[Rfam]
RNA sequence: CCCUGCUCAACGGGGUGCCAGGACAGUUUGUCCGCGCUGAGAUAAUACCCGUCGAACCUGAUCCGGAUAACGCCGGCGAAGGGAUUUGAGACACUCAACUCA
Numbered sequence: 001c002c003c004u005g006c007u008c009a010a011c012g013g014g015g016u017g018c019c020a021g022g023a024c025a026g027u028u029u030g031u032c033c034g035c036g037c038u039g040a041g042a043u044a045a046u047a048c049c050c051g052u053c054g055a056a057c058c059u060g061a062u063c064c065g066g067a068u069a070a071c072g073c074c075g076g077c078g079a080a081g082g083g084a085u086u087u088g089a090g091a092c093a094c095u096c097a098a099c100u101c102a
Stems, first nucleotide, its partner, number of pairs: 006090005011051004016045001017037002021033004057082003063076004
RNA: TPP riboswitch aptamer (THI element)